The family of this 66-nucleotide RNA from Chania multitudinisentens is "Enterobacterial sRNA STnc240". Pairs were carried over by alignment from the consensus structure, which was predicted with WAR. It is annotated as a small RNA.
RNA sequence: GUCUUCUGGUGCAGAAUAUGCGCCAUGCAAAUAACCGACGUUUUAACGCGUCGGUUAUUUUUUUGC
Dot-bracket structure: ..........((.......))..........(((((((((........))))))))).........
Numbered sequence: 001g002u003c004u005u006c007u008g009g010u011g012c013a014g015a016a017u018a019u020g021c022g023c024c025a026u027g028c029a030a031a032u033a034a035c036c037g038a039c040g041u042u043u044u045a046a047c048g049c050g051u052c053g054g055u056u057a058u059u060u061u062u063u064u065g066c
Stems, first nucleotide, its partner, number of pairs: 011021002032057009